[Rfam]
The family of this 103-nucleotide RNA is "mir-36 microRNA precursor family". Gene Ontology terms of the family: miRNA-mediated post-transcriptional gene silencing and RISC complex. The base pairs follow the family's consensus structure, which was predicted with WAR.
RNA sequence: GACACGCGCCUGUGCCGCGCCCCAGCUGGUGUCUGCCACAGUGAUAAAAAGAUUCCAAACUUCUAUCACCGGGUGUACAUCAGUUUGGGUGCGUGCACAGGAU
Numbered sequence: 001g002a003c004a005c006g007c008g009c010c011u012g013u014g015c016c017g018c019g020c021c022c023c024a025g026c027u028g029g030u031g032u033c034u035g036c037c038a039c040a041g042u043g044a045u046a047a048a049a050a051g052a053u054u055c056c057a058a059a060c061u062u063c064u065a066u067c068a069c070c071g072g073g074u075g076u077a078c079a080u081c082a083g084u085u086u087g088g089g090u091g092c093g094u095g096c097a098c099a100g101g102a103u
Stems, first nucleotide, its partner, number of pairs: 016093007024085009034075004039071001041069006